[Rfam]
RNA sequence: UUCUCCUAGUGUUCACUGUGGGCCUUUAUGUUCAAUAAUUUGUCAUAAGGCACGCGGUGAAUGCCAAGAGCA
Numbered sequence: 001u002u003c004u005c006c007u008a009g010u011g012u013u014c015a016c017u018g019u020g021g022g023c024c025u026u027u028a029u030g031u032u033c034a035a036u037a038a039u040u041u042g043u044c045a046u047a048a049g050g051c052a053c054g055c056g057g058u059g060a061a062u063g064c065c066a067a068g069a070g071c072a
Stems, first nucleotide, its partner, number of pairs: 003070003009064008018055003023050003027047004
Dot-bracket structure: ..(((...((((((((.(((..(((.((((.............)))))))..))).))))))))...)))..
This 72-nucleotide sequence from Diabrotica balteata belongs to the Rfam family "mir-124 microRNA precursor family". A reference for the family is Lim et al. (2003), "The microRNAs of Caenorhabditis elegans", Genes Dev. Taxonomically the source falls in Diabrotica (Eukaryota, Protostomia, Mandibulata, Pancrustacea). The family has 122 seed sequences and 2,215 matches in Rfam 15.1.